[Rfam]
RNA sequence: GAAAGAUGCCGCCGGAUGAUGUGAGGGUGAUUUCAUCAGCGUACUUGAUACGUGGUAUUCGCGCCGGGGGUCUUUCUUUUU
Numbered sequence: 001g002a003a004a005g006a007u008g009c010c011g012c013c014g015g016a017u018g019a020u021g022u023g024a025g026g027g028u029g030a031u032u033u034c035a036u037c038a039g040c041g042u043a044c045u046u047g048a049u050a051c052g053u054g055g056u057a058u059u060c061g062c063g064c065c066g067g068g069g070g071u072c073u074u075u076c077u078u079u080u081u
Stems, first nucleotide, its partner, number of pairs: 001076007010068001012067004020063006026037004040052004
RNA: DUF3800-VII RNA